[Rfam]
RNA sequence: AGUUAGUCUGAGGGUUGUGGGUUGUUGUUAAGUUGAUUUAACAUUGUCUCCCCGCCCACAACCAUUUUUGACUAGCUAAAA
Numbered sequence: 001a002g003u004u005a006g007u008c009u010g011a012g013g014g015u016u017g018u019g020g021g022u023u024g025u026u027g028u029u030a031a032g033u034u035g036a037u038u039u040a041a042c043a044u045u046g047u048c049u050c051c052c053c054g055c056c057c058a059c060a061a062c063c064a065u066u067u068u069u070g071a072c073u074a075g076c077u078a079a080a081a
Stems, first nucleotide, its partner, number of pairs: 001077008010069002014065002016060006026043003030039002
The record is an 81-nucleotide sequence from Microcebus murinus, which matches "Y RNA" in Rfam. It is annotated as a non-coding RNA gene. For this family Rfam cites "5'-YRNA fragments derived by processing of transcripts from specific YRNA genes and pseudogenes are abundant in human serum and plasma" (Dhahbi et al., Physiol Genomics, 2013). A search with the family's covariance model found it, with a score of 61 bits. The source organism's lineage runs through Eukaryota, Chordata, Amniota, Mammalia and Microcebus.